Rfam assigns this 101-nucleotide RNA sequence from Musca domestica to the family "mir-317 microRNA precursor family". NCBI's taxonomy places the organism under Eukaryota, Eumetazoa, Protostomia, Muscini, Musca. It scores 72 bits against the family's covariance model.
[Rfam]
RNA sequence: UGUCUUUACUACCGGGAUACACCCUGUGCUCGCUUUGAAGUUUAAGCUAACAAUUUGAUAUCAGUGAACACAGCUGGUGGUAUCUCAGUGGUAGCUGGCAU
Numbered sequence: 001u002g003u004c005u006u007u008a009c010u011a012c013c014g015g016g017a018u019a020c021a022c023c024c025u026g027u028g029c030u031c032g033c034u035u036u037g038a039a040g041u042u043u044a045a046g047c048u049a050a051c052a053a054u055u056u057g058a059u060a061u062c063a064g065u066g067a068a069c070a071c072a073g074c075u076g077g078u079g080g081u082a083u084c085u086c087a088g089u090g091g092u093a094g095c096u097g098g099c100a101u
Stems, first nucleotide, its partner, number of pairs: 008092005015086001016084002019081002021078003024073003028069001030067005